[Rfam]
RNA sequence: GUCAGGGAGCUGAACGAGCAAAAAAGGGUGAACCGGCGGCGCAACAGCGUUCAGCGCGGCCGGUAAGC
Dot-bracket structure: ...............................((((((.((((...........)))).))))))....
DnaX ribosomal frameshifting element: a 68-nucleotide RNA sequence from Jejuibacter calystegiae. Rfam's curators write: This family represents a ribosomal frameshifting element found in the mRNA of the dnaX gene in E. coli. The dnaX gene has two encoded products tau and gamma which are produced in a 1:1 ratio. The gamma protein is synthesised due to programmed frameshifting and is shorter than tau. The two products of the dnaX gene are DNA polymerase III subunits. NCBI's taxonomy places the organism under Bacteria, Pseudomonadati, Pseudomonadota, Gammaproteobacteria, Jejuibacter. On this family, see Blinkova et al., J Bacteriol 1997: "Conservation of the Escherichia coli dnaX programmed ribosomal frameshift signal in Salmonella typhimurium".